This 126-nucleotide RNA from Clupea harengus belongs to the Rfam family "Small nucleolar RNA SNORA65".
Taxonomically the source falls in Clupea (Eukaryota, Eumetazoa, Bilateria, Deuterostomia).
Pairs were carried over by alignment from the consensus structure, which was predicted with RNAalifold.

[Rfam]
RNA sequence: CCCGCCACUGUGCCUGUCCUACUAUGACUGAGCAUAGUCCAGUGGAGGCUAAUAUAGACCCAGCUCUAGGAAGCAGGGCUACCUAAACAUAUAGGUAACUCUGUGCCGAAAGAACCUGGAACAAAA
Number, nucleotide and partner (000 for none) at each position: 001c000002c000003c000004g000005c045006c044007a043008c042009u041010g040011u000012g000013c000014c000015u000016g000017u000018c032019c000020u030021a029022c000023u000024a000025u000026g000027a000028c000029u021030g020031a000032g018033c000034a000035u000036a000037g000038u000039c000040c010041a009042g008043u007044g006045g005046a000047g000048g000049c000050u000051a000052a000053u000054a000055u000056a000057g000058a000059c000060c119061c118062a117063g116064c000065u113066c112067u111068a000069g107070g106071a000072a000073g000074c103075a102076g101077g100078g099079c000080u000081a000082c095083c094084u093085a000086a000087a000088c000089a000090u000091a000092u000093a084094g083095g082096u000097a000098a000099c078100u077101c076102u075103g074104u000105g000106c070107c069108g000109a000110a000111a067112g066113a065114a000115c000116c063117u062118g061119g060120a000121a000122c000123a000124a000125a000126a000